[Rfam]
RNA sequence: CUUGUCCCUGGAAGCCUUGCAGGUGUGGCUGCUGUGUCACAUGUGCGUCAGUAAGUGACAGAAGAGAGAGGCCAUGUCUAUGCUCAGGGUUCUGCUCUAUGAACAUCUGAAUGAUUAGCAGCCUAACAUA
Numbered sequence: 001c002u003u004g005u006c007c008c009u010g011g012a013a014g015c016c017u018u019g020c021a022g023g024u025g026u027g028g029c030u031g032c033u034g035u036g037u038c039a040c041a042u043g044u045g046c047g048u049c050a051g052u053a054a055g056u057g058a059c060a061g062a063a064g065a066g067a068g069a070g071g072c073c074a075u076g077u078c079u080a081u082g083c084u085c086a087g088g089g090u091u092c093u094g095c096u097c098u099a100u101g102a103a104c105a106u107c108u109g110a111a112u113g114a115u116u117a118g119c120a121g122c123c124u125a126a127c128a129u130a
Stems, first nucleotide, its partner, number of pairs: 002061005007055001009053002014048002019046003024041006066127001069124004075118001081113002084110004089104004
RNA: Small nucleolar RNA SNORA17
Organism: Rattus norvegicus